[Rfam]
RNA sequence: CCUCUGUGAUGAUUGAAACAGCAUGACUUUCGUUCUUCUGAAAGCGCUGAAGCCAAACUCUGUCCUGAGAAGG
Number, nucleotide and partner (000 for none) at each position: 001c073002c072003u071004c069005u000006g000007u000008g000009a000010u000011g000012a000013u000014u000015g000016a000017a000018a000019c000020a000021g000022c000023a000024u000025g000026a000027c000028u000029u000030u000031c000032g000033u000034u000035c000036u000037u000038c000039u000040g000041a000042a000043a000044g000045c000046g000047c000048u000049g000050a000051a000052g000053c000054c000055a000056a000057a000058c000059u000060c000061u000062g000063u000064c000065c000066u000067g000068a000069g004070a000071a003072g002073g001
A member of the RNA family "Small nucleolar RNA SNORD59" from Albula goreensis, 73 nucleotides long. Its Rfam clan is "SNORD59 clan". NCBI's taxonomy places the organism under Eukaryota, Bilateria, Gnathostomata, Elopocephala, Albula. The literature on the family includes a 2002 paper in Mol Cell Biol by Galardi et al., "Purified box C/D snoRNPs are able to reproduce site-specific 2'-O-methylation of target RNA in vitro". It scores 65 bits against the family's covariance model. The family's consensus secondary structure was predicted with ILM. Rfam 15.1 lists 1,355 matches to the family in 620 species.